[Rfam]
Nucleotides: 117
Stems, first nucleotide, its partner, number of pairs: 043111006066097006073090001
Number, partner (000 for none) and nucleotide at each position: 001000g002000u003000g004000c005000c006000u007000c008000a009000g010000g011000a012000a013000u014000g015000a016000a017000u018000g019000g020000g021000u022000c023000c024000a025000u026000a027000a028000a029000a030000u031000a032000a033000u034000u035000c036000a037000a038000a039000u040000u041000c042000a043111u044110c045109c046108a047107u048106c049000u050000g051000c052000u053000c054000a055000g056000c057000g058000c059000u060000c061000a062000c063000u064000u065000u066097g067096u068095c069094a070093g071092c072000u073090g074000u075000g076000u077000a078000u079000u080000u081000u082000u083000g084000u085000g086000u087000u088000a089000c090073u091000u092071g093070u094069u095068g096067a097066u098000a099000g100000u101000u102000a103000a104000a105000c106048g107047a108046u109045g110044g111043a112000a113000a114000a115000c116000c117000u
This 117-nucleotide sequence from Papaver somniferum belongs to the Rfam family "Small nucleolar RNA snoR99". The match comes from Rfam's covariance-model search (52 bits). A reference for the family is Marker et al. (2002), "Experimental RNomics: identification of 140 candidates for small non-messenger RNAs in the plant Arabidopsis thaliana", Curr Biol. Lineage of the source: Eukaryota > Streptophytina > Euphyllophyta > Papaveraceae > Papaver. Its family is annotated with RNA processing and nucleolus in the Gene Ontology.